[Rfam]
RNA sequence: UGGUCGGCGUAGCUAAGUGAAUACUUCGUAACUUUGAAAAUGAAUUCACAAACCCAUCCACUGGCGCGAUCUGGCCAUUUU
Number, nucleotide and partner (000 for none) at each position: 001u000002g076003g075004u074005c073006g072007g071008c000009g000010u000011a000012g065013c064014u063015a062016a000017g061018u060019g059020a000021a000022u000023a000024c000025u052026u051027c000028g049029u048030a000031a000032c000033u000034u000035u000036g000037a000038a000039a000040a000041u000042g000043a000044a000045u000046u000047c000048a029049c028050a000051a026052a025053c000054c000055c000056a000057u000058c000059c019060a018061c017062u015063g014064g013065c012066g000067c000068g000069a000070u000071c007072u006073g005074g004075c003076c002077a000078u000079u000080u000081u000

Rfam assigns this 81-nucleotide RNA from Hydra vulgaris to the family "Vault RNA". By type it is a non-coding RNA gene.